Record summary:
The family of this 76-nucleotide sequence from Mariniplasma anaerobium is "c-di-GMP-I riboswitch aptamer". GEMM was predicted in a large-scale screen for bacterial structured RNA regulatory elements.
RNA sequence: AGAUGUUAAAGGCAAACCUAGGGAAAUCUAGCGGCGCAAAACUAAAGGGCCUGUCAAAUGGUAGCCAGUUGUCAUU
Numbered sequence: 001a002g003a004u005g006u007u008a009a010a011g012g013c014a015a016a017c018c019u020a021g022g023g024a025a026a027u028c029u030a031g032c033g034g035c036g037c038a039a040a041a042c043u044a045a046a047g048g049g050c051c052u053g054u055c056a057a058a059u060g061g062u063a064g065c066c067a068g069u070u071g072u073c074a075u076u
Base pairs, nucleotide, nucleotide: 012037013036018031019030020029021028022027040070041069042068043067047066048065049062050061051060
A search with the family's covariance model found it, with a score of 53 bits.